[Rfam]
RNase MRP: a 281-nucleotide sequence from Cercopithifilaria johnstoni.
The family's RNA type in Rfam is ribozyme.

RNA sequence: GGGUGAUGGGAAGUGUAGCACUCGCAGUGACGCACCGGUUCUUCAAUGGCCGCAUUUGUUCAAAUGAAGUAAUGGCUGUGAGCGAAAGUCCCUGAACAUGAGGCUGAGAGAGCUCCAUCUGUAGCUCGGGUGUACUCGGAUAUCCAACCUGGAUGGCGUUUGGGCCAGGAGACCGUUAGCGGUUGAGCCUAGGAUGGCCAUCGGUUGACCUCCGGGAUUCGUUGCAAGCAAAGUGACGUUACACGAUCAGGAACAGCACAGGGCUUACUCUCCUUGUCACC
Number, nucleotide and partner (000 for none) at each position: 001g000002g281003g280004u279005g278006a277007u276008g275009g273010g272011a271012a000013g000014u243015g242016u241017a240018g239019c238020a000021c000022u082023c080024g079025c078026a077027g076028u075029g000030a000031c000032g000033c000034a000035c000036c000037g000038g000039u000040u000041c000042u000043u000044c000045a000046a000047u000048g000049g000050c000051c000052g000053c000054a000055u000056u000057u000058g000059u000060u000061c000062a000063a000064a000065u000066g000067a000068a000069g000070u000071a000072a000073u000074g000075g028076c027077u026078g025079u024080g023081a000082g022083c000084g000085a000086a266087a265088g264089u000090c263091c262092c261093u260094g000095a000096a000097c000098a000099u000100g000101a000102g114103g113104c112105u111106g000107a000108g000109a000110g000111a105112g104113c103114u102115c000116c132117a131118u130119c129120u128121g000122u000123a000124g000125c000126u000127c000128g120129g119130g118131u117132g116133u000134a000135c216136u215137c214138g000139g000140a000141u000142a000143u000144c000145c207146a206147a205148c204149c203150u000151g000152g000153a000154u200155g199156g198157c197158g000159u000160u000161u000162g190163g189164g188165c187166c000167a000168g000169g000170a000171g000172a183173c182174c181175g180176u000177u000178a000179g000180c175181g174182g173183u172184u000185g000186a000187g165188c164189c163190u162191a000192g000193g000194a000195u000196g000197g157198c156199c155200a154201u000202c000203g149204g148205u147206u146207g145208a000209c000210c000211u000212c000213c000214g137215g136216g135217a000218u000219u000220c000221g000222u000223u000224g000225c000226a000227a000228g000229c000230a000231a000232a000233g000234u000235g000236a000237c000238g019239u018240u017241a016242c015243a014244c000245g000246a000247u000248c000249a000250g000251g000252a000253a000254c000255a000256g000257c000258a000259c000260a093261g092262g091263g090264c088265u087266u086267a000268c000269u000270c000271u011272c010273c009274u000275u008276g007277u006278c005279a004280c003281c002

The match comes from Rfam's covariance-model search (75 bits). Pairs were carried over by alignment from the consensus structure, which is taken from published work. Lineage of the source: Eukaryota > Opisthokonta > Ecdysozoa > Filarioidea > Cercopithifilaria. Its Rfam clan is "RNaseP clan".